[Rfam]
RNA sequence: GUUCCAGAUACGGAGACAUGGUUCCCAACACCAUUGCCGGGAAAAUAUUUGGCUCCAUAUGCUCCCUGAGUGGUGUCUUGGUGAUAGCUCUUCCCGUGCCUGUCAUUGUGUCCAAC
Numbered sequence: 001g002u003u004c005c006a007g008a009u010a011c012g013g014a015g016a017c018a019u020g021g022u023u024c025c026c027a028a029c030a031c032c033a034u035u036g037c038c039g040g041g042a043a044a045a046u047a048u049u050u051g052g053c054u055c056c057a058u059a060u061g062c063u064c065c066c067u068g069a070g071u072g073g074u075g076u077c078u079u080g081g082u083g084a085u086a087g088c089u090c091u092u093c094c095c096g097u098g099c100c101u102g103u104c105a106u107u108g109u110g111u112c113c114a115a116c
Stems, first nucleotide, its partner, number of pairs: 001116002007112001009110005015104004020099001023096001039079004051065002
A member of the RNA family "Potassium channel RNA editing signal" from Chanos chanos, 116 nucleotides long. NCBI's taxonomy places the organism under Eukaryota, Teleostomi, Osteoglossocephalai, Otomorpha, Chanos. Its family is annotated with adenosine to inosine editing in the Gene Ontology. It is annotated as a cis-regulatory element. From the family's description: This family represents a group of sequences related to the human potassium channel Kv1.1 hairpin element which directs the efficient modification of an adenosine to inosine by an adenosine deaminase acting on RNA (ADAR). The match comes from Rfam's covariance-model search (84 bits).